[Rfam]
RNA sequence: AAGGGAGCAAUAAACAAUUUCUUGUUCUACCAAGAGGGCGUUAUUGCUCCUUUUUUU
Numbered sequence: 001a002a003g004g005g006a007g008c009a010a011u012a013a014a015c016a017a018u019u020u021c022u023u024g025u026u027c028u029a030c031c032a033a034g035a036g037g038g039c040g041u042u043a044u045u046g047c048u049c050c051u052u053u054u055u056u057u
Base pairs, nucleotide, nucleotide: 001053002052003051004050005049006048007047008046009045010044011043012042013041019036020035021034022033023032024031
RNA: Plastid-psbA-3 3UTR RNA